c-di-AMP riboswitch aptamer (ydaO/yuaA leader): a 190-nucleotide RNA from Actinacidiphila paucisporea. The source organism's lineage runs through Bacteria, Actinomycetota, Actinomycetes, Streptomycetaceae and Actinacidiphila. Rfam's curators write: This family represents a conserved RNA structure found upstream of the ydaO and yuaA genes in Bacillus subtilis and related genes in other bacteria. Its family is annotated with cyclic-di-AMP binding and regulation of gene expression in the Gene Ontology. A search with the family's covariance model found it, with a score of 43 bits.

[Rfam]
RNA sequence: UCACGGGAACAGUCGAGCAUUCAGGGCAGGAGCGGGGGACCCAGGUAAGCCGCCGUCCGGGAACACCGGACGGCUCGGGGUGAAGCCGUGCCCGCCGCCCGCGCAUCGCACAGCGCGGCGGCGGCGGACCGCGGCCGGGCAUCUCCUGCCCGAACCCGACAGCUCACCUCGCAGGCGUAGGAGAGGAAUU
Numbered sequence: 001u002c003a004c005g006g007g008a009a010c011a012g013u014c015g016a017g018c019a020u021u022c023a024g025g026g027c028a029g030g031a032g033c034g035g036g037g038g039a040c041c042c043a044g045g046u047a048a049g050c051c052g053c054c055g056u057c058c059g060g061g062a063a064c065a066c067c068g069g070a071c072g073g074c075u076c077g078g079g080g081u082g083a084a085g086c087c088g089u090g091c092c093c094g095c096c097g098c099c100c101g102c103g104c105a106u107c108g109c110a111c112a113g114c115g116c117g118g119c120g121g122c123g124g125c126g127g128a129c130c131g132c133g134g135c136c137g138g139g140c141a142u143c144u145c146c147u148g149c150c151c152g153a154a155c156c157c158g159a160c161a162g163c164u165c166a167c168c169u170c171g172c173a174g175g176c177g178u179a180g181g182a183g184a185g186g187a188a189u190u
Stems, first nucleotide, its partner, number of pairs: 001031002032172006042077001078157003086134004137151004